[Rfam]
RNA sequence: AUUUUGCAAAAUACAUUCCACACACGCGUCGGCACAUUGAGCUGGGUGCCCUUUGGGGUCACUGAAUGGGGCGCGUGGAGGCUCAAA
Numbered sequence: 001a002u003u004u005u006g007c008a009a010a011a012u013a014c015a016u017u018c019c020a021c022a023c024a025c026g027c028g029u030c031g032g033c034a035c036a037u038u039g040a041g042c043u044g045g046g047u048g049c050c051c052u053u054u055g056g057g058g059u060c061a062c063u064g065a066a067u068g069g070g071g072c073g074c075g076u077g078g079a080g081g082c083u084c085a086a087a
Stems, first nucleotide, its partner, number of pairs: 023077008035068004040063002048059004
Annotation:
The record is an 87-nucleotide sequence from Thiorhodospira sibirica, which matches "t44 RNA" in Rfam. Rfam's curators put it in the seed alignment. The organism belongs to Thiorhodospira sibirica, within Bacteria. Rfam classes the family as a small RNA. The base pairs follow the family's consensus structure, which was predicted with LocARNA.